[Rfam]
The family of this 111-nucleotide sequence is "Actinomyces-1 RNA". By type it is a small RNA. Pairs were carried over by alignment from the consensus structure, which is taken from published work.
RNA sequence: GUUACCGCCGGGCGGGGCGGACCGCGAGGGUUGGGGAGCCCAUUGACCGGUUCGUCGCCGAGGUCAGGAUGGGUCUUAGGGAGCCCAUCGCUGACCGUCCCGGCGAAGGAG
Number, nucleotide and partner (000 for none) at each position: 001g000002u000003u000004a000005c000006c105007g104008c103009c102010g101011g100012g099013c060014g059015g058016g000017g000018c054019g053020g052021a051022c050023c049024g048025c000026g000027a000028g041029g040030g039031u038032u037033g000034g000035g000036g000037a032038g031039c030040c029041c028042a000043u000044u000045g000046a000047c000048c024049g023050g022051u021052u020053c019054g018055u000056c000057g000058c015059c014060g013061a000062g096063g095064u094065c093066a092067g091068g000069a000070u087071g086072g085073g084074u083075c000076u000077u000078a000079g000080g000081g000082a000083g074084c073085c072086c071087a070088u000089c000090g000091c067092u066093g065094a064095c063096c062097g000098u000099c012100c011101c010102g009103g008104c007105g006106a000107a000108g000109g000110a000111g000